[Rfam]
RNA sequence: UGAACACGCCCAUCACGGGGGUGGUGCCCCAGCCCGGCACGACCUUGCCGUAUUCGGAAUUC
Number, nucleotide and partner (000 for none) at each position: 001u000002g000003a000004a000005c000006a000007c000008g000009c000010c000011c000012a000013u000014c000015a000016c000017g000018g046019g045020g044021g043022u042023g000024g040025u039026g038027c037028c036029c000030c000031a000032g000033c000034c000035c000036g028037g027038c026039a025040c024041g000042a022043c021044c020045u019046u018047g000048c000049c000050g000051u000052a000053u000054u000055c000056g000057g000058a000059a000060u000061u000062c000